Nucleotides: 102
Base pairs, nucleotide, nucleotide: 018088019087020086021085022084023083024082025081031047032046033045034044035043058078059077060076061075062074063073064072
Number, partner (000 for none) and nucleotide at each position: 001000u002000a003000a004000a005000a006000c007000u008000a009000a010000a011000u012000a013000g014000c015000u016000g017000a018088u019087u020086g021085u022084c023083g024082u025081a026000u027000a028000u029000c030000c031047u032046u033045g034044g035043g036000a037000a038000u039000a040000a041000g042000g043035c044034c045033c046032g047031a048000a049000a050000g051000u052000c053000u054000c055000u056000a057000c058078c059077a060076g061075a062074g063073c064072a065000c066000c067000g068000u069000a070000a071000a072064u073063g074062c075061u076060u077059u078058g079000a080000c081025u082024a083023c084022g085021a086020u087019g088018a089000a090000u091000g092000g093000a094000a095000c096000g097000c098000u099000u100000c101000u102000u
Description
This 102-nucleotide RNA sequence from Sporosarcina sp. BI001-red belongs to the Rfam family "Purine riboswitch aptamer". The match comes from Rfam's covariance-model search (80 bits). NCBI's taxonomy places the organism under Bacteria, Bacillati, Bacillota, Caryophanales, Sporosarcina. Its Rfam clan is "Purine riboswitches".